[Rfam]
Description
This 355-nucleotide part of an RNA belongs to the Rfam family "Bacterial small subunit ribosomal RNA". For this family Rfam cites "Crystal structure of the ribosome at 5.5 A resolution" (Yusupov et al., Science, 2001). The match comes from Rfam's covariance-model search (1196 bits). Rfam 15.1 lists 42,628 matches to the family in 10,626 species.
RNA sequence: GGCGUAAAGCGUCUGUAGGUGGCUUUUUAAGUUCGCCGUCAAAUCCCAGGGCUCAACCCUGGACAGGCGGUGGAAACUACCAAGCUGGAGUACGGUAGGGGUAGAGGGAAUUUCCGGUGGAGCAGUGAAAUACGUAGAGAUCGGAAAGAACACCAACGGCGAAAGCACUCUGCUGGGCCGACACUGACACUGAGAGACGAAAGCUAGAGGAGCGAAUGGGAUUAGAUACCCUAGUAGUCCUAGCCGUAAACGAUGGAUACUAGGCGCUGUGCGUAUCGACCCGUGCAAUGCUGUAGCUAACGCGUUAAGUAUCCCGCCUGGGGAGUACGUUCGUAAGAAUGAAACUCAAAGGAAU
Numbered sequence: 001g002g003c004g005u006a007a008a009g010c011g012u013c014u015g016u017a018g019g020u021g022g023c024u025u026u027u028u029a030a031g032u033u034c035g036c037c038g039u040c041a042a043a044u045c046c047c048a049g050g051g052c053u054c055a056a057c058c059c060u061g062g063a064c065a066g067g068c069g070g071u072g073g074a075a076a077c078u079a080c081c082a083a084g085c086u087g088g089a090g091u092a093c094g095g096u097a098g099g100g101g102u103a104g105a106g107g108g109a110a111u112u113u114c115c116g117g118u119g120g121a122g123c124a125g126u127g128a129a130a131u132a133c134g135u136a137g138a139g140a141u142c143g144g145a146a147a148g149a150a151c152a153c154c155a156a157c158g159g160c161g162a163a164a165g166c167a168c169u170c171u172g173c174u175g176g177g178c179c180g181a182c183a184c185u186g187a188c189a190c191u192g193a194g195a196g197a198c199g200a201a202a203g204c205u206a207g208a209g210g211a212g213c214g215a216a217u218g219g220g221a222u223u224a225g226a227u228a229c230c231c232u233a234g235u236a237g238u239c240c241u242a243g244c245c246g247u248a249a250a251c252g253a254u255g256g257a258u259a260c261u262a263g264g265c266g267c268u269g270u271g272c273g274u275a276u277c278g279a280c281c282c283g284u285g286c287a288a289u290g291c292u293g294u295a296g297c298u299a300a301c302g303c304g305u306u307a308a309g310u311a312u313c314c315c316g317c318c319u320g321g322g323g324a325g326u327a328c329g330u331u332c333g334u335a336a337g338a339a340u341g342a343a344a345c346u347c348a349a350a351g352g353a354a355u
Base pairs, nucleotide, nucleotide: 001318002317003316009315011198012197013196014195016192018191019190020189022085023084024083025082028079030078031077032074033073034072035071036070037069038068039067040066046062047061048060049059050058051057089185090184091183093180094179095178096177100174101173102172103171104170105169106168107151111147112146113145114144115143116142117141118140122133124131159166160165203244204243205242206241207240212238213237217233218232219231220230255314256313257312258311259310260309263292264291265290266289268287269286270285271284272283273282296303297302320347321346322345329340330339331338332337